[Rfam]
A member of the RNA family "Editing element of GABA-3 exon 9" from Jacana jacana, 48 nucleotides long. Rfam 15.1 lists 4,208 matches to the family in 654 species. A search with the family's covariance model found it, with a score of 59 bits. The family's RNA type in Rfam is cis-regulatory element.
RNA sequence: GCCUACGCCACUGCUAUGGAUUGGUUUAUAGCGGUGUGCUACGCCUUU
Numbered sequence: 001g002c003c004u005a006c007g008c009c010a011c012u013g014c015u016a017u018g019g020a021u022u023g024g025u026u027u028a029u030a031g032c033g034g035u036g037u038g039c040u041a042c043g044c045c046u047u048u
Base pairs, nucleotide, nucleotide: 001044002043004041005040007039008038009036010035011034012033013032014031016029017028018027019026020025
Description
The base pairs follow the family's consensus structure, which is taken from published work.